[Rfam]
Nucleotides: 080
Stems, first nucleotide, its partner, number of pairs: 003054002006051007015042002017068005027038004059073003
Number, partner (000 for none) and nucleotide at each position: 001000u002000c003054g004053u005000c006051a007050c008049c009048a010047u011046g012045u013000g014000a015042c016041u017068g018067g019066c020065g021064u022000u023000u024000u025000a026000g027038a028037c029036a030035g031000g032000u033000c034000a035030c036029u037028g038027u039000c040000g041016g042015g043000g044000a045012g046011c047010a048009u049008g050007g051006u052000u053004g054003c055000c056000g057000c058000c059073g060072c061071c062000g063000c064021g065020c066019g067018c068017c069000u070000g071061g072060g073059c074000a075000u076000c077000a078000c079000u080000u

ZMP/ZTP riboswitch aptamer (pfl RNA motif): an 80-nucleotide sequence. Pairs were carried over by alignment from the consensus structure, which is taken from published work. Rfam's curators put it in the seed alignment.